[Rfam]
RNA sequence: AAAAGUUACAGUUCUUUUAGAAUUUGUCUAUCAGGUUUUUUGGUUCUCACUAGAAGACCCCA
Dot-bracket structure: .................................(((((((((((....)))))))))))...
Numbered sequence: 001a002a003a004a005g006u007u008a009c010a011g012u013u014c015u016u017u018u019a020g021a022a023u024u025u026g027u028c029u030a031u032c033a034g035g036u037u038u039u040u041u042g043g044u045u046c047u048c049a050c051u052a053g054a055a056g057a058c059c060c061c062a
Stems, first nucleotide, its partner, number of pairs: 034059011
Rfam assigns this 62-nucleotide sequence from Microcebus murinus to the family "U7 small nuclear RNA".
Pairs were carried over by alignment from the consensus structure, which was predicted with PFOLD.
Rfam's curators write: Animal histone pre-mRNAs are spliced by a different mechanism than nuclear pre-mRNAs and self-splicing introns. This processing involves the U7 snRNP, which contains only one RNA species: U7. The 5' end of U7 RNA is thought to base-pair to a conserved spacer element downstream of the cleavage site in histone pre-mRNA. This family contains a number of annotated U7 pseudogenes.
The match comes from Rfam's covariance-model search (57 bits).